[Rfam]
RNA: Lysine riboswitch aptamer
RNA sequence: CGAUGAGGUAGAGGUCGCAACUUUUAUAAGUAAUUCGGACGAGAUACAGAGAAUAUUGUUGACUCCGUUUGAAAGGAAAAGUUGCCGAAGUUCAUUCCAUAUUCUCGUAUGAAUGGGCUGGGGCUGUUUCCGAAUAGGGACAGAACUGUCACAUUUACUACGCCAAGUAAAUGUGUUGAGCUAUCUUCGGA
Numbered sequence: 001c002g003a004u005g006a007g008g009u010a011g012a013g014g015u016c017g018c019a020a021c022u023u024u025u026a027u028a029a030g031u032a033a034u035u036c037g038g039a040c041g042a043g044a045u046a047c048a049g050a051g052a053a054u055a056u057u058g059u060u061g062a063c064u065c066c067g068u069u070u071g072a073a074a075g076g077a078a079a080a081g082u083u084g085c086c087g088a089a090g091u092u093c094a095u096u097c098c099a100u101a102u103u104c105u106c107g108u109a110u111g112a113a114u115g116g117g118c119u120g121g122g123g124c125u126g127u128u129u130c131c132g133a134a135u136a137g138g139g140a141c142a143g144a145a146c147u148g149u150c151a152c153a154u155u156u157a158c159u160a161c162g163c164c165a166a167g168u169a170a171a172u173g174u175g176u177u178g179a180g181c182u183a184u185c186u187u188c189g190g191a
Stems, first nucleotide, its partner, number of pairs: 006186006017085009033070001036067004089119009099110003120147002124143007150175009